[Rfam]
RNA sequence: AUUAUUUAAAGGCAAACCUGCUGAAAGGCAGGGACGCAAAGCCAGAAGGGGCUAAAGUCAGAAAGUUUGAUCAGGUCAGCCGGUUGCCACU
Numbered sequence: 001a002u003u004a005u006u007u008a009a010a011g012g013c014a015a016a017c018c019u020g021c022u023g024a025a026a027g028g029c030a031g032g033g034a035c036g037c038a039a040a041g042c043c044a045g046a047a048g049g050g051g052c053u054a055a056a057g058u059c060a061g062a063a064a065g066u067u068u069g070a071u072c073a074g075g076u077c078a079g080c081c082g083g084u085u086g087c088c089a090c091u
Base pairs, nucleotide, nucleotide: 012037013036017032018031019030020029021028022027040085041084042083043082048081049080050077051076052075057071058070059069060068061067062066